Rfam assigns this 77-nucleotide RNA from Populus trichocarpa to the family "Small nucleolar RNA R160".
NCBI's taxonomy places the organism under Eukaryota, Tracheophyta, rosids, Saliceae, Populus.
snoR160 is a C/D box small nucleolar RNA, which acts as a methylation guide for 25S ribosomal RNA in plants. snoR160 has been alternatively named snoZ270 in rice.
A reference for the family is Chen et al. (2003), "The high diversity of snoRNAs in plants: identification and comparative study of 120 snoRNA genes from Oryza sativa", Nucleic Acids Res.
The match comes from Rfam's covariance-model search (63 bits).
RNA sequence: AGCAAAAUGAUGAGAUUAACAUGGCUGAAUCUGAUGUGGAAUUCUAUAUCACUGGUCUUCAAAGUUCUCUGAUCGCU
Numbered sequence: 001a002g003c004a005a006a007a008u009g010a011u012g013a014g015a016u017u018a019a020c021a022u023g024g025c026u027g028a029a030u031c032u033g034a035u036g037u038g039g040a041a042u043u044c045u046a047u048a049u050c051a052c053u054g055g056u057c058u059u060c061a062a063a064g065u066u067c068u069c070u071g072a073u074c075g076c077u
Base pairs, nucleotide, nucleotide: 001077002076003075005073
By type it is a C/D-box small nucleolar RNA.